RNA sequence: CUUUUGUACUUUUGUACGUCGCUUUGGAUAAAAGCGUCUGCCAAAUGAAUAAAU
Numbered sequence: 001c002u003u004u005u006g007u008a009c010u011u012u013u014g015u016a017c018g019u020c021g022c023u024u025u026g027g028a029u030a031a032a033a034g035c036g037u038c039u040g041c042c043a044a045a046u047g048a049a050u051a052a053a054u
Stems, first nucleotide, its partner, number of pairs: 013043001014041003020036006
The record is a 54-nucleotide RNA from Megalops atlanticus, which matches "UnaL2 LINE 3' element" in Rfam. A search with the family's covariance model found it, with a score of 57 bits. The organism belongs to Megalops, within Eukaryota. Its family is annotated with transposition, RNA-mediated in the Gene Ontology. The eel long interspersed element (LINE) UnaL2 and its partner short interspersed element (SINE) share a conserved 3' tail containing a stem-loop that is critical for their retrotransposition. Presumably, the first step of retrotransposition is the recognition of their 3' tails by UnaL2-encoded reverse transcriptase.